A member of the RNA family "tRNA" from Bacteroides sp. An322, 73 nucleotides long. On this family, see Hou, Trends Biochem Sci 1993: "The tertiary structure of tRNA and the development of the genetic code". Taxonomically the source falls in Bacteroides (Bacteria, Pseudomonadati, Bacteroidota, Bacteroidaceae). The family's RNA type in Rfam is transfer RNA.

[Rfam]
RNA sequence: ACGGGAAUAGCUCAGUUGGUAGAGCAUCGGUCUCCAAAACCGAGUGUCGGGAGUUCGAGCCUCUCUUCCCGUG
Numbered sequence: 001a002c003g004g005g006a007a008u009a010g011c012u013c014a015g016u017u018g019g020u021a022g023a024g025c026a027u028c029g030g031u032c033u034c035c036a037a038a039a040c041c042g043a044g045u046g047u048c049g050g051g052a053g054u055u056c057g058a059g060c061c062u063c064u065c066u067u068c069c070c071g072u073g
Base pairs, nucleotide, nucleotide: 001072002071003070004069005068006067007066010025011024012023013022027043028042029041030040031039049065050064051063052062053061